Bacterial large subunit ribosomal RNA: a 250-nucleotide part of an RNA from Lewinella sp. W8. The match comes from Rfam's covariance-model search (2702 bits). Taxonomically the source falls in Lewinella (Bacteria, Pseudomonadati, Bacteroidota, Saprospirales).
RNA sequence: GUAGGAAUAUUGAGAAGAUCUGUCUCCAGUACGAGAGGACCGGGAUGGACGCACCUCUAGUGUACCGGUUGUGGCGCCAGCUGCACCGCCGGGUAGCUAUGUGCGGAAUGGAUAAGCGCUGAAAGCAUCUAAGCACGAAGCCAACUUCAAGAUGAGUAUUCCCCUGAGGGCCGUAGAAGAUGACUACGUUGAUAGGUUGUAGGUGGAAGUGCAGUAAUGUAUGGAGCCGAGCAAUACUAAUCGCCCGACA
Numbered sequence: 001g002u003a004g005g006a007a008u009a010u011u012g013a014g015a016a017g018a019u020c021u022g023u024c025u026c027c028a029g030u031a032c033g034a035g036a037g038g039a040c041c042g043g044g045a046u047g048g049a050c051g052c053a054c055c056u057c058u059a060g061u062g063u064a065c066c067g068g069u070u071g072u073g074g075c076g077c078c079a080g081c082u083g084c085a086c087c088g089c090c091g092g093g094u095a096g097c098u099a100u101g102u103g104c105g106g107a108a109u110g111g112a113u114a115a116g117c118g119c120u121g122a123a124a125g126c127a128u129c130u131a132a133g134c135a136c137g138a139a140g141c142c143a144a145c146u147u148c149a150a151g152a153u154g155a156g157u158a159u160u161c162c163c164c165u166g167a168g169g170g171c172c173g174u175a176g177a178a179g180a181u182g183a184c185u186a187c188g189u190u191g192a193u194a195g196g197u198u199g200u201a202g203g204u205g206g207a208a209g210u211g212c213a214g215u216a217a218u219g220u221a222u223g224g225a226g227c228c229g230a231g232c233a234a235u236a237c238u239a240a241u242c243g244c245c246c247g248a249c250a
Stems, first nucleotide, its partner, number of pairs: 004162008014148004020048007050105005058099003065092005070085006109143003116136001118134003165248001168246004172188005193239003196235005202228002209222005